[Rfam]
RNA: RtT RNA
Organism: Pseudoxanthomonas wuyuanensis
RNA sequence: GUCAGGCGAAACACGAGGUGGGUGAGAACCGCCGAGUGGUUCGACAGAAGUCCCGAAGGGGCUUCUGAACGCACCGGAGGUGCGGCCCGGAGGGCGAGGGACGAAGUCCCGAGUCAUCCACCUCCCUCCACCA
Numbered sequence: 001g002u003c004a005g006g007c008g009a010a011a012c013a014c015g016a017g018g019u020g021g022g023u024g025a026g027a028a029c030c031g032c033c034g035a036g037u038g039g040u041u042c043g044a045c046a047g048a049a050g051u052c053c054c055g056a057a058g059g060g061g062c063u064u065c066u067g068a069a070c071g072c073a074c075c076g077g078a079g080g081u082g083c084g085g086c087c088c089g090g091a092g093g094g095c096g097a098g099g100g101a102c103g104a105a106g107u108c109c110c111g112a113g114u115c116a117u118c119c120a121c122c123u124c125c126c127u128c129c130a131c132c133a
Stems, first nucleotide, its partner, number of pairs: 015124007023116001033096002040091004047065008070084006